Bacterial large subunit ribosomal RNA: a 439-nucleotide part of an RNA from Clostridium sp. 'deep sea'. Pairs were carried over by alignment from the consensus structure, which is taken from published work.
RNA sequence: CUCUCCGAAAUAGCUUUAGGGCUAGCCUCAAUCGGUGAGUCAGGGGCGUAGAGCACUGAUGGAAUAAGGGGACUUCACCGUCUACCAACUUCUGUCAAACUCCGAAGUCCAACUGACUUUAGAUUGGGAGUCAGACUGCGAAUGAUAAGAUCCGUAGUCGAGAGGGAAACAACCCAGACCACCUGCUAAGGUCCCCAAGUCAUAACUAAGUGGAGAAGGAGGUGGGAUUGCAUAGACAACCAGGAUGUUGGCUUAGAAGCAGCCAUACAUUUAAAGAGUGCGUAAUAGCUCACUGGUCAAGUGAUCCUGCGCCGAAAAUGAACGGGGCUAAAGUUAUGCACCGAAGCAGUGGCUAGAUAGUAAUAUCUGGGGUAGGAGAGCAUUGCAUGGGCGGAGAAGCUGUGCUGUAAGGCAUGGUGGAGCGCAUGGAAGAGAGAAU
Numbered sequence: 001c002u003c004u005c006c007g008a009a010a011u012a013g014c015u016u017u018a019g020g021g022c023u024a025g026c027c028u029c030a031a032u033c034g035g036u037g038a039g040u041c042a043g044g045g046g047c048g049u050a051g052a053g054c055a056c057u058g059a060u061g062g063a064a065u066a067a068g069g070g071g072a073c074u075u076c077a078c079c080g081u082c083u084a085c086c087a088a089c090u091u092c093u094g095u096c097a098a099a100c101u102c103c104g105a106a107g108u109c110c111a112a113c114u115g116a117c118u119u120u121a122g123a124u125u126g127g128g129a130g131u132c133a134g135a136c137u138g139c140g141a142a143u144g145a146u147a148a149g150a151u152c153c154g155u156a157g158u159c160g161a162g163a164g165g166g167a168a169a170c171a172a173c174c175c176a177g178a179c180c181a182c183c184u185g186c187u188a189a190g191g192u193c194c195c196c197a198a199g200u201c202a203u204a205a206c207u208a209a210g211u212g213g214a215g216a217a218g219g220a221g222g223u224g225g226g227a228u229u230g231c232a233u234a235g236a237c238a239a240c241c242a243g244g245a246u247g248u249u250g251g252c253u254u255a256g257a258a259g260c261a262g263c264c265a266u267a268c269a270u271u272u273a274a275a276g277a278g279u280g281c282g283u284a285a286u287a288g289c290u291c292a293c294u295g296g297u298c299a300a301g302u303g304a305u306c307c308u309g310c311g312c313c314g315a316a317a318a319u320g321a322a323c324g325g326g327g328c329u330a331a332a333g334u335u336a337u338g339c340a341c342c343g344a345a346g347c348a349g350u351g352g353c354u355a356g357a358u359a360g361u362a363a364u365a366u367c368u369g370g371g372g373u374a375g376g377a378g379a380g381c382a383u384u385g386c387a388u389g390g391g392c393g394g395a396g397a398a399g400c401u402g403u404g405c406u407g408u409a410a411g412g413c414a415u416g417g418u419g420g421a422g423c424g425c426a427u428g429g430a431a432g433a434g435a436g437a438a439u
Stems, first nucleotide, its partner, number of pairs: 001380006011024005026130001027128007036121001037119007044110003051103001052101002057097003061093004068086002070083004134159007142151002164175003179352004184348003190342003199339001201338006218313002222310010239297005245270003250264003271275001276291001280289002353370007381434001383431002386428004391423002399418008
Rfam 15.1 lists 51,934 matches to the family in 10,816 species.